Background
Rfam assigns this 73-nucleotide RNA sequence from Betta splendens to the family "U1A polyadenylation inhibition element (PIE)". For this family Rfam cites "Global and Local Dynamics of the U1A Polyadenylation Inhibition Element (PIE) RNA and PIE RNA-U1A Complexes" (Clerte and Hall, Biochemistry, 2004). The match comes from Rfam's covariance-model search (67 bits). From the family's description: This family represents the U1A polyadenylation inhibition element (PIE). PIE is a regulatory RNA which is responsible for the regulation of the length of the polyA tail of the U1A pre-mRNA. The PIE is located in the U1A mRNA 3' UTR. PIE adopts a U-shaped structure, with binding sites for a single U1A protein at each bend and when complexed with the two proteins it blocks activity of poly(A) polymerase (PAP), and inhibits its activity. Rfam 15.1 lists 510 matches to the family in 331 species.
RNA sequence: ACAAAAAGCAUUGCACCCAGCGUCUGGUCCACCAGACAUUGUACCUGGAGCUUUCUCAUAAUUAAAGUGACAC
Numbered sequence: 001a002c003a004a005a006a007a008g009c010a011u012u013g014c015a016c017c018c019a020g021c022g023u024c025u026g027g028u029c030c031a032c033c034a035g036a037c038a039u040u041g042u043a044c045c046u047g048g049a050g051c052u053u054u055c056u057c058a059u060a061a062u063u064a065a066a067g068u069g070a071c072a073c
Base pairs, nucleotide, nucleotide: 005054006053007052008051009050017048018047019046020045022037023036024035025034026033